[Rfam]
RNA sequence: CCUCCUCUUCUUGGCGGGGACCGGGCGUGCGGUCCCGGUCCCCCUGAUGUGCGGAGGGAGAGGGCUCUGGCCCCCUCGGCGCCACGUCUUCGGUGCCGGCGGUUUCCAGUCCGCCGGUUCUAUCCUCAAGCGCCGGGACACGG
Numbered sequence: 001c002c003u004c005c006u007c008u009u010c011u012u013g014g015c016g017g018g019g020a021c022c023g024g025g026c027g028u029g030c031g032g033u034c035c036c037g038g039u040c041c042c043c044c045u046g047a048u049g050u051g052c053g054g055a056g057g058g059a060g061a062g063g064g065c066u067c068u069g070g071c072c073c074c075c076u077c078g079g080c081g082c083c084a085c086g087u088c089u090u091c092g093g094u095g096c097c098g099g100c101g102g103u104u105u106c107c108a109g110u111c112c113g114c115c116g117g118u119u120c121u122a123u124c125c126u127c128a129a130g131c132g133c134c135g136g137g138a139c140a141c142g143g
Stems, first nucleotide, its partner, number of pairs: 001057005016043005022037004077135006096117007
Rfam assigns this 143-nucleotide RNA from Phyllostomus discolor to the family "Small nucleolar RNA SNORA57". It is annotated as an H/ACA-box small nucleolar RNA. NCBI's taxonomy places the organism under Eukaryota, Metazoa, Teleostomi, Theria, Phyllostomus. Pairs were carried over by alignment from the consensus structure, which was predicted with PFOLD. Rfam 15.1 lists 1,736 matches to the family in 530 species. Its family is annotated with RNA processing and nucleolus in the Gene Ontology.